This 97-nucleotide RNA sequence from Aquarana catesbeiana belongs to the Rfam family "Vault RNA". Lineage of the source: Eukaryota > Chordata > Gnathostomata > Tetrapoda > Aquarana. Rfam describes the family as follows. This family of RNAs are found as part of the enigmatic vault ribonucleoprotein complex. The complex consists of a major vault protein (MVP), two minor vault proteins (VPARP and TEP1), and several small untranslated RNA molecules. It has been suggested that the vault complex is involved in drug resistance. For this family Rfam cites "Evolution of Vault RNAs" (Stadler et al., Mol Biol Evol, 2009).
RNA sequence: GGGCCGGCGAUAGCUCAGCGGUUACUUCAUUAUCUUGUCAAGUGAUAAAAUAAUCCCUUCGGGGGUUCGAAUCCCGCGGGCGCUGACAGGCCCUUUU
Dot-bracket structure: .((((.(.....((((.((((....(((........................................)))..)))))))).....).)))).....